[Rfam]
RNA sequence: UUCUAUUACGACUAGUAGCCCAAGACAGCGAGCGGGGUUCAUCCCCUCAAUCUUGCCCGCCGAGGCGUUUGCGCUUCUUGACCAUGUGCAAUACGGCUCUCUGUUGUUGGCAGAGAGCUUUUCUUUUCUACGC
Numbered sequence: 001u002u003c004u005a006u007u008a009c010g011a012c013u014a015g016u017a018g019c020c021c022a023a024g025a026c027a028g029c030g031a032g033c034g035g036g037g038u039u040c041a042u043c044c045c046c047u048c049a050a051u052c053u054u055g056c057c058c059g060c061c062g063a064g065g066c067g068u069u070u071g072c073g074c075u076u077c078u079u080g081a082c083c084a085u086g087u088g089c090a091a092u093a094c095g096g097c098u099c100u101c102u103g104u105u106g107u108u109g110g111c112a113g114a115g116a117g118c119u120u121u122u123c124u125u126u127u128c129u130a131c132g133c
Stems, first nucleotide, its partner, number of pairs: 028060003032056002034046003096118010
RNA: Ribosomal protein L10 leader